[Rfam]
RNA sequence: ACAACACAACAAUAUCAGUAUCUCAUGCUAUUGCCCGAACCCAUUCGGGCAUUUUUU
Numbered sequence: 001a002c003a004a005c006a007c008a009a010c011a012a013u014a015u016c017a018g019u020a021u022c023u024c025a026u027g028c029u030a031u032u033g034c035c036c037g038a039a040c041c042c043a044u045u046c047g048g049g050c051a052u053u054u055u056u057u
Stems, first nucleotide, its partner, number of pairs: 001015001003013001017029005032051008

Shown here is a 57-nucleotide sequence from Escherichia coli, a member of the family "Anti GcvB sRNA". The family's RNA type in Rfam is small RNA. The sequence is in the family's curated seed alignment. On this family, see Tree et al., Mol Cell 2014: "Identification of bacteriophage-encoded anti-sRNAs in pathogenic Escherichia coli". The base pairs follow the family's consensus structure, which was predicted with RNAfold.